[Rfam]
RNA sequence: CGCCCACCGAACCCUAUCUCCACCUCCACGUGGUGACCAUUGGGAGCUCUUUCUCAACGAAAAGCUGCAGACGAAGAAGG
Numbered sequence: 001c002g003c004c005c006a007c008c009g010a011a012c013c014c015u016a017u018c019u020c021c022a023c024c025u026c027c028a029c030g031u032g033g034u035g036a037c038c039a040u041u042g043g044g045a046g047c048u049c050u051u052u053c054u055c056a057a058c059g060a061a062a063a064g065c066u067g068c069a070g071a072c073g074a075a076g077a078a079g080g
Stems, first nucleotide, its partner, number of pairs: 013080003017076001019074002022034003045066004050061002053059001

The record is an 80-nucleotide RNA sequence from Hermetia illucens, which matches "drz-agam-1 ribozyme" in Rfam. Rfam 15.1 lists 10,507 matches to the family in 53 species. A reference for the family is Webb et al. (2009), "Widespread occurrence of self-cleaving ribozymes", Science. Lineage of the source: Eukaryota > Bilateria > Protostomia > Insecta > Hermetia.